[Rfam]
RNA: L31-Firmicutes ribosomal protein leader
RNA sequence: CUCUGGUUCUUAUGGAUCCAGGGCGAUAAGGAG
Number, nucleotide and partner (000 for none) at each position: 001c023002u022003c021004u020005g019006g017007u016008u015009c000010u000011u000012a000013u000014g000015g008016a007017u006018c000019c005020a004021g003022g002023g001024c000025g000026a000027u000028a000029a000030g000031g000032a000033g000